Notes
This 117-nucleotide RNA from Thioclava sp. SK-1 belongs to the Rfam family "ALIL pseudoknot". By type it is a cis-regulatory element. The organism belongs to Thioclava, within Bacteria. The base pairs follow the family's consensus structure, which is taken from published work.

RNA sequence: AGCUUAUUUUGCGCAGGCGGAACUCGACCGCCCACUCAAGCGAUGAUCGGCUUCAUCGACGAUCAAAGGGCUGUUUACGGUGUCGAGUCGAUCUGCAGGGUGCUGCCGAUUGCACCG
Number, nucleotide and partner (000 for none) at each position: 001a000002g000003c000004u000005u000006a000007u000008u000009u000010u000011g000012c000013g000014c000015a000016g032017g031018c030019g029020g028021a000022a000023c000024u000025c000026g000027a000028c020029c019030g018031c017032c016033c000034a000035c000036u000037c000038a000039a000040g000041c000042g000043a000044u000045g000046a000047u000048c000049g000050g000051c000052u000053u000054c000055a000056u000057c000058g000059a000060c000061g000062a000063u000064c000065a000066a000067a000068g000069g000070g000071c000072u000073g000074u000075u000076u000077a000078c117079g116080g115081u114082g113083u000084c000085g000086a000087g000088u000089c112090g111091a000092u109093c108094u000095g106096c105097a104098g103099g000100g000101u000102g000103c098104u097105g096106c095107c000108g093109a092110u000111u090112g089113c082114a081115c080116c079117g078